[Rfam]
RNA sequence: UAGGGCGAUCCGUUGGCGCAUGAGAGAAUAUCUCACAAUUUGCUUUUCAGAAUAACCUUGAAUAUUUGAGGAAUGGCCUCAUUUAAUCUCCAGUAGCAAAAUUCUGAAUAGUAUUGGAGGUGUUAUGCGUCUGGAUCGUCUUAC
Numbered sequence: 001u002a003g004g005g006c007g008a009u010c011c012g013u014u015g016g017c018g019c020a021u022g023a024g025a026g027a028a029u030a031u032c033u034c035a036c037a038a039u040u041u042g043c044u045u046u047u048c049a050g051a052a053u054a055a056c057c058u059u060g061a062a063u064a065u066u067u068g069a070g071g072a073a074u075g076g077c078c079u080c081a082u083u084u085a086a087u088c089u090c091c092a093g094u095a096g097c098a099a100a101a102u103u104c105u106g107a108a109u110a111g112u113a114u115u116g117g118a119g120g121u122g123u124u125a126u127g128c129g130u131c132u133g134g135a136u137c138g139u140c141u142u143a144c
Base pairs, nucleotide, nucleotide: 002142003141004140005139006138007137008136009135010134011133012132015131016130017129018128019127020126022124023123027047028046030044032042056071057070058069059068060067061066072083073082074081075080086121087120088119089118090117091116092115093114094113095112